[Rfam]
RNA: Small nucleolar RNA R44/J54/Z268 family
RNA sequence: UUUGCAAGUGAUGAUAAAAUAGACAGGGACAUCAGCAAUCCUUUUCUGGAGAAUGUUGACUAAAGUCUUUGGGAAUCUCUCUGAUGCAUA
Numbered sequence: 001u002u003u004g005c006a007a008g009u010g011a012u013g014a015u016a017a018a019a020u021a022g023a024c025a026g027g028g029a030c031a032u033c034a035g036c037a038a039u040c041c042u043u044u045u046c047u048g049g050a051g052a053a054u055g056u057u058g059a060c061u062a063a064a065g066u067c068u069u070u071g072g073g074a075a076u077c078u079c080u081c082u083g084a085u086g087c088a089u090a
Stems, first nucleotide, its partner, number of pairs: 003088004